RNA sequence: AACCGUCAUCGCAAUAGUAAUUCAACUUAGUACGAGAGGAACCGUUGAUUCAGAUAAUUGGUUUUUGCGGCUGUCCGACAGGGCAUUGCCGCGAAGCUACCAUCUGUUGGAUUAUGGCUGAACGCCUCUAAGUCAGAAUCCAUGCUAGAAUGUGAUGAUUUUUACUCCUACAUAUUCGUACUUGUACAAGAAUAGGCUUUUAGCCUUGUGUCAUAGCAGGUUGGCAACGGAUUCUCUGAUCUAAACGGUUGGGGUUUCUUGCUGGCGUAUUGCAAUUUAACCGUAUGUGGGAAUAAAUCCCUUGCAGACGACUUGAUUGUGGGGCAGGGUGCUGUAAGCAGUAGAGUAGCCUUGUUGUUACGAUCUGCUGAGGCUAAACCUUUGUCUCCCUAGAUUUGU
Numbered sequence: 001a002a003c004c005g006u007c008a009u010c011g012c013a014a015u016a017g018u019a020a021u022u023c024a025a026c027u028u029a030g031u032a033c034g035a036g037a038g039g040a041a042c043c044g045u046u047g048a049u050u051c052a053g054a055u056a057a058u059u060g061g062u063u064u065u066u067g068c069g070g071c072u073g074u075c076c077g078a079c080a081g082g083g084c085a086u087u088g089c090c091g092c093g094a095a096g097c098u099a100c101c102a103u104c105u106g107u108u109g110g111a112u113u114a115u116g117g118c119u120g121a122a123c124g125c126c127u128c129u130a131a132g133u134c135a136g137a138a139u140c141c142a143u144g145c146u147a148g149a150a151u152g153u154g155a156u157g158a159u160u161u162u163u164a165c166u167c168c169u170a171c172a173u174a175u176u177c178g179u180a181c182u183u184g185u186a187c188a189a190g191a192a193u194a195g196g197c198u199u200u201u202a203g204c205c206u207u208g209u210g211u212c213a214u215a216g217c218a219g220g221u222u223g224g225c226a227a228c229g230g231a232u233u234c235u236c237u238g239a240u241c242u243a244a245a246c247g248g249u250u251g252g253g254g255u256u257u258c259u260u261g262c263u264g265g266c267g268u269a270u271u272g273c274a275a276u277u278u279a280a281c282c283g284u285a286u287g288u289g290g291g292a293a294u295a296a297a298u299c300c301c302u303u304g305c306a307g308a309c310g311a312c313u314u315g316a317u318u319g320u321g322g323g324g325c326a327g328g329g330u331g332c333u334g335u336a337a338g339c340a341g342u343a344g345a346g347u348a349g350c351c352u353u354g355u356u357g358u359u360a361c362g363a364u365c366u367g368c369u370g371a372g373g374c375u376a377a378a379c380c381u382u383u384g385u386c387u388c389c390c391u392a393g394a395u396u397u398g399u
Base pairs, nucleotide, nucleotide: 005159006158007157008156009155010154011153012152015147016146017145018144020050022048023047024046025045026044051106052105053104054103055102059099060098061097066093067092068091069090070089072085073084074083075082076081108142109141110140115135116134117133118132119131166291167290168289170288171287172286295397296396297395298394299393301315304312321388322387323386324385325384326383327381328380329379331374332373338368339367340366341365343364346361347360348359349358350357